Shown here is a 50-nucleotide sequence from Bradyrhizobium sp. Leo170, a member of the family "chrB-b RNA".
[Rfam]
RNA sequence: CGGGGACGUCGCAGCCUCCCCGUAAAAUGGUGGCCCCAUGCAAGCGCUGC
Numbered sequence: 001c002g003g004g005g006a007c008g009u010c011g012c013a014g015c016c017u018c019c020c021c022g023u024a025a026a027a028u029g030g031u032g033g034c035c036c037c038a039u040g041c042a043a044g045c046g047c048u049g050c
Base pairs, nucleotide, nucleotide: 001022002021003020004019005018006017011050012049013048014047015046027039028038029037030036
The organism belongs to Bradyrhizobium, within Bacteria. Rfam classes the family as a cis-regulatory element.